[Rfam]
Annotation
serC leader: a 53-nucleotide sequence from Devosia geojensis. From the family's description: This family is a putative regulatory RNA structure that is found upstream of the serC-serA operon in some alpha-proteobacteria. The final stem of the structure overlaps the ribosome binding site of the serC reading frame. The family's RNA type in Rfam is cis-regulatory leader. On this family, see Corbino et al., Genome Biol 2005: "Evidence for a second class of S-adenosylmethionine riboswitches and other regulatory RNA motifs in alpha-proteobacteria". Its family is annotated with regulation of gene expression in the Gene Ontology.
RNA sequence: CCUCAGGACAUCUCGCCCUAACGCGAGACAAUCGACCUGGGAGGGUCGCUCAU
Dot-bracket structure: ..........((((((......))))))....((((((....)))))).....